[Rfam]
c-di-AMP riboswitch aptamer (ydaO/yuaA leader): a 138-nucleotide sequence from Nonomuraea cavernae. The source organism's lineage runs through Bacteria, Bacillati, Actinomycetota, Streptosporangiaceae and Nonomuraea. It scores 89 bits against the family's covariance model.

RNA sequence: UGCCGUUGCGGGCCUAAUCCCGGGCGCGUCGCCCGGGAACCGGGGACCCACCGCAUCUGGGGUGAAUCCACUUCGGUGGUAGGGCGACUCCCAUGCCCGAACCCGUCAGCUAACCCGGUCGGCAGAGGGAGAGGACAU
Numbered sequence: 001u002g003c004c005g006u007u008g009c010g011g012g013c014c015u016a017a018u019c020c021c022g023g024g025c026g027c028g029u030c031g032c033c034c035g036g037g038a039a040c041c042g043g044g045g046a047c048c049c050a051c052c053g054c055a056u057c058u059g060g061g062g063u064g065a066a067u068c069c070a071c072u073u074c075g076g077u078g079g080u081a082g083g084g085c086g087a088c089u090c091c092c093a094u095g096c097c098c099g100a101a102c103c104c105g106u107c108a109g110c111u112a113a114c115c116c117g118g119u120c121g122g123c124a125g126a127g128g129g130a131g132a133g134g135a136c137a138u
Stems, first nucleotide, its partner, number of pairs: 012123003018038009039119006049059002060104003068079004082098004